[Rfam]
RNA sequence: CGACCAUCCAGAGCGGCUGAGAGACCUGGCUCAACGACGCCGCAGCAACCCCCCGGUGCAGAAAUGCAUGGACAGGGUGCUACCGCCAGGAACGAUGGAGC
Numbered sequence: 001c002g003a004c005c006a007u008c009c010a011g012a013g014c015g016g017c018u019g020a021g022a023g024a025c026c027u028g029g030c031u032c033a034a035c036g037a038c039g040c041c042g043c044a045g046c047a048a049c050c051c052c053c054c055g056g057u058g059c060a061g062a063a064a065u066g067c068a069u070g071g072a073c074a075g076g077g078u079g080c081u082a083c084c085g086c087c088a089g090g091a092a093c094g095a096u097g098g099a100g101c
Stems, first nucleotide, its partner, number of pairs: 004098005013043005021032003026089004044081004049077002053071002085093001
RNA: SAM riboswitch aptamer (S box leader)
Organism: Rarobacter incanus